RNA sequence: CUUCUGCGGUGAUGAUUUUAUGAGAAAUUCACAUGUCAGACUUCAGAGAUUCUUGUAAUCUAUGAGAAUAAAUUCAUAUAUCUGAGCAGAAG
Numbered sequence: 001c002u003u004c005u006g007c008g009g010u011g012a013u014g015a016u017u018u019u020a021u022g023a024g025a026a027a028u029u030c031a032c033a034u035g036u037c038a039g040a041c042u043u044c045a046g047a048g049a050u051u052c053u054u055g056u057a058a059u060c061u062a063u064g065a066g067a068a069u070a071a072a073u074u075c076a077u078a079u080a081u082c083u084g085a086g087c088a089g090a091a092g
Base pairs, nucleotide, nucleotide: 001092002091003090004089005088006087007086048060049059050058051057

About this RNA:
Shown here is a 92-nucleotide RNA, a member of the family "Small nucleolar RNA R64/Z200 family". Its family is annotated with RNA processing and nucleolus in the Gene Ontology. Rfam's curators put it in the seed alignment. By type it is a C/D-box small nucleolar RNA.